A member of the RNA family "PreQ1 (pre queuosine) riboswitch aptamer" from Spirochaeta isovalerica, 45 nucleotides long. Taxonomically the source falls in Spirochaeta (Bacteria, Pseudomonadati, Spirochaetia, Spirochaetaceae).
RNA sequence: ACAGACGCAGUUCGUAACCAUCCUGCGAAACAAAACUAGGAGUUU
Numbered sequence: 001a002c003a004g005a006c007g008c009a010g011u012u013c014g015u016a017a018c019c020a021u022c023c024u025g026c027g028a029a030a031c032a033a034a035a036c037u038a039g040g041a042g043u044u045u
Stems, first nucleotide, its partner, number of pairs: 006027005015038002
A reference for the family is Flemmich et al. (2021), "A natural riboswitch scaffold with self-methylation activity", Nat Commun. Gene Ontology term of the family: queuosine biosynthetic process. Rfam describes the family as follows. This family is a bacterial riboswitch that binds to the metabolite preQ1, an intermediate in the biosynthesis of the modified nucleoside queuosine from GTP. One example of this riboswitch is located in the leader of the Bacillus subtilis ykvJKLM (queCDEF) operon which encodes four genes necessary for queuosine production. PreQ1 binding to the riboswitch aptamer is thought to induce premature transcription termination within the leader to down-regulate expression of these genes. Pairs were carried over by alignment from the consensus structure.